[Rfam]
RNA: TrxA 5' UTR thermometer
RNA sequence: AACCUUUAGUUGGUUAAUGCUACAUCAACAGGUCGUUGAUGGAAGCGAGAUCAACGCACCAGGCUUAUUCCUGUGGAGUUAUAUAUGAGCGAUAAAAUUAUUCACCUGACUGAC
Numbered sequence: 001a002a003c004c005u006u007u008a009g010u011u012g013g014u015u016a017a018u019g020c021u022a023c024a025u026c027a028a029c030a031g032g033u034c035g036u037u038g039a040u041g042g043a044a045g046c047g048a049g050a051u052c053a054a055c056g057c058a059c060c061a062g063g064c065u066u067a068u069u070c071c072u073g074u075g076g077a078g079u080u081a082u083a084u085a086u087g088a089g090c091g092a093u094a095a096a097a098u099u100a101u102u103c104a105c106c107u108g109a110c111u112g113a114c
Base pairs, nucleotide, nucleotide: 009093010092011091012090014088015087016086022079023078025076026075027074029073030072031071032070098113099112100111102109103108